[Rfam]
RNA sequence: GAGAGGUGUGAAGCAUUCUGUACUCAAAAGGUACGGACCUUCUCCCGAAGCACAUCUUUCAUAAAUCCACAUUUGCUAACUUUUAAUUCAAUGAUUAAAAAAGCAAGAGUCUUCGGGCGUUGAUGACGAAAGGUGUCUAAUACUUCGGACCUUAGUCAACGAAGUCAUCCUUUGAACCGCAAGUUCGGGGAUGUCAAUUGUGAAACAACUCGUGGGUUGGCCGACCCUUUGUGAGACCGCAAGUCUUAAGAGAUUGGAGUAGUAGUUGAGUAGUUAUCGACGAUACGAAUGGUAGCCGUAAGCGACCGACACUGACCUGAUACCUCUGUCAAUGAGGUGGACAAGUGGGGAACAAACUAAUUAUAAUCCCACAAAAGACAGGUUAUUCAAACGUGUAGUCUCAGCGU
Numbered sequence: 001g002a003g004a005g006g007u008g009u010g011a012a013g014c015a016u017u018c019u020g021u022a023c024u025c026a027a028a029a030g031g032u033a034c035g036g037a038c039c040u041u042c043u044c045c046c047g048a049a050g051c052a053c054a055u056c057u058u059u060c061a062u063a064a065a066u067c068c069a070c071a072u073u074u075g076c077u078a079a080c081u082u083u084u085a086a087u088u089c090a091a092u093g094a095u096u097a098a099a100a101a102a103g104c105a106a107g108a109g110u111c112u113u114c115g116g117g118c119g120u121u122g123a124u125g126a127c128g129a130a131a132g133g134u135g136u137c138u139a140a141u142a143c144u145u146c147g148g149a150c151c152u153u154a155g156u157c158a159a160c161g162a163a164g165u166c167a168u169c170c171u172u173u174g175a176a177c178c179g180c181a182a183g184u185u186c187g188g189g190g191a192u193g194u195c196a197a198u199u200g201u202g203a204a205a206c207a208a209c210u211c212g213u214g215g216g217u218u219g220g221c222c223g224a225c226c227c228u229u230u231g232u233g234a235g236a237c238c239g240c241a242a243g244u245c246u247u248a249a250g251a252g253a254u255u256g257g258a259g260u261a262g263u264a265g266u267u268g269a270g271u272a273g274u275u276a277u278c279g280a281c282g283a284u285a286c287g288a289a290u291g292g293u294a295g296c297c298g299u300a301a302g303c304g305a306c307c308g309a310c311a312c313u314g315a316c317c318u319g320a321u322a323c324c325u326c327u328g329u330c331a332a333u334g335a336g337g338u339g340g341a342c343a344a345g346u347g348g349g350g351a352a353c354a355a356a357c358u359a360a361u362u363a364u365a366a367u368c369c370c371a372c373a374a375a376a377g378a379c380a381g382g383u384u385a386u387u388c389a390a391a392c393g394u395g396u397a398g399u400c401u402c403a404g405c406g407u
Stems, first nucleotide, its partner, number of pairs: 001060009010042004017037008044117007103180002118282010133312005142165006148157003166193005174186004196267005209252003214227004232248003236244002291307003295303002314384003318380002321339006340400003345372006392406003
A member of the RNA family "Giant, ornate, lake- and Lactobacillales-derived (GOLLD) RNA", 407 nucleotides long.
The literature on the family includes a 2009 paper in Nature by Weinberg et al., "Exceptional structured noncoding RNAs revealed by bacterial metagenome analysis".
The family's consensus secondary structure is taken from published work.
The sequence is in the family's curated seed alignment.